[Rfam]
Nucleotides: 077
Stems, first nucleotide, its partner, number of pairs: 001039008011029006041074003045070011
Number, partner (000 for none) and nucleotide at each position: 001039a002038g003037u004036c005035a006034u007033g008032a009000u010000g011029g012028c013027u014026a015025u016024u017000c018000u019000c020000c021000u022000a023000a024016a025015a026014u027013a028012g029011u030000g031000a032008u033007u034006g035005u036004g037003a038002u039001u040000a041074g042073c043072g044000a045070g046069g047068c048067g049066c050065u051064c052063g053062u054061g055060u056000u057000g058000c059000a060055g061054c062053a063052c064051g065050g066049g067048c068047g069046u070045c071000u072043u073042g074041c075000g076000u077000u